[Rfam]
RNA: mir-344 microRNA precursor family
Organism: Microtus ochrogaster
Nucleotides: 072
Stems, first nucleotide, its partner, number of pairs: 007066003011062002014059001017057008027041005
Number, partner (000 for none) and nucleotide at each position: 001000u002000u003000u004000u005000c006000a007066g008065u009064c010000a011062g012061g013000c014059u015000c016000c017057u018056g019055g020054c021053u022052g023051g024050a025000g026000u027041c028040c029039a030038g031037c032000u033000c034000a035000c036000a037031g038030c039029u040028g041027g042000a043000u044000c045000c046000u047000g048000g049000u050024u051023c052022u053021a054020g055019c056018c057017a058000g059014g060000a061012c062011c063000u064009g065008a066007c067000u068000a069000u070000a071000a072000c